[Rfam]
RNA: c-di-AMP riboswitch aptamer (ydaO/yuaA leader)
RNA sequence: AUUUUCCAGAGGCCGAAUCCCCGGAAAGACAGAACCCGGGGUACGGGGGAAUACAUACGGUGCGGGGUGAAUCCACGGCGUCCCGGGAGGUGAAAUAAAAGACCCGUGGUAGGGUGCCCUCUACCCGAACCCAUCAGCUAACCCCGGAGGCAAAAGGGAGGGAAGAA
Numbered sequence: 001a002u003u004u005u006c007c008a009g010a011g012g013c014c015g016a017a018u019c020c021c022c023g024g025a026a027a028g029a030c031a032g033a034a035c036c037c038g039g040g041g042u043a044c045g046g047g048g049g050a051a052u053a054c055a056u057a058c059g060g061u062g063c064g065g066g067g068u069g070a071a072u073c074c075a076c077g078g079c080g081u082c083c084c085g086g087g088a089g090g091u092g093a094a095a096u097a098a099a100a101g102a103c104c105c106g107u108g109g110u111a112g113g114g115u116g117c118c119c120u121c122u123a124c125c126c127g128a129a130c131c132c133a134u135c136a137g138c139u140a141a142c143c144c145c146g147g148a149g150g151c152a153a154a155a156g157g158g159a160g161g162g163a164a165g166a167a
Stems, first nucleotide, its partner, number of pairs: 012151003019041006044146005065132003073109006112126004